[Rfam]
RNA sequence: UUAUCCGACGGCGAUGGAUUUCCGCCGAGCCUUCGGGCUGAACUGCCCCUUUCGUUUUAAUCUCCCCCGUGGAGAGGAAGAAAACGAGAGUGAUGGCUGAUGAUUCCUGCCUUUGU
Numbered sequence: 001u002u003a004u005c006c007g008a009c010g011g012c013g014a015u016g017g018a019u020u021u022c023c024g025c026c027g028a029g030c031c032u033u034c035g036g037g038c039u040g041a042a043c044u045g046c047c048c049c050u051u052u053c054g055u056u057u058u059a060a061u062c063u064c065c066c067c068c069g070u071g072g073a074g075a076g077g078a079a080g081a082a083a084a085c086g087a088g089a090g091u092g093a094u095g096g097c098u099g100a101u102g103a104u105u106c107c108u109g110c111c112u113u114u115g116u
Base pairs, nucleotide, nucleotide: 010026011025012024013023016107017106018105020103021102045097046096047095
The family of this 116-nucleotide sequence from Oecophyllibacter saccharovorans is "Fluoride riboswitch aptamer (crcB RNA motif)".
The family's consensus secondary structure is taken from published work.
Lineage of the source: Bacteria > Pseudomonadota > Acetobacterales > Acetobacteraceae > Oecophyllibacter.
The match comes from Rfam's covariance-model search (37 bits).